This 61-nucleotide RNA from Gossypium barbadense belongs to the Rfam family "Plastid-psbN 5UTR RNA". NCBI's taxonomy places the organism under Eukaryota, Spermatophyta, Magnoliopsida, eudicotyledons, Gossypium.
[Rfam]
RNA sequence: UGCAACACCCAUCAAAUGAGUCGUUCUCCAUCCAGGGGCUACCUUGUCAUAUUCCGAAUUC
Dot-bracket structure: .................(.((.(((((.......))))).)).).................
It scores 63 bits against the family's covariance model. The literature on the family includes a 2023 paper in Plant Commun by Richter et al., "Retrograde signaling in plants: A critical review focusing on the GUN pathway and beyond". By type it is a cis-regulatory element. Pairs were carried over by alignment from the consensus structure, which was predicted with LocARNA. Plastid psbN is a non-coding RNA (ncRNA) recognised in plastids. It was reported as a conserved 11 stem-loop in the prime untranslated region (5UTR) of psbN genes. It has been reported that the motif is retained in a subset of mature transcripts in barley, which can suggests a possible role in transcript alternative 5 prime processing. Rfam 15.1 lists 2,345 matches to the family in 397 species.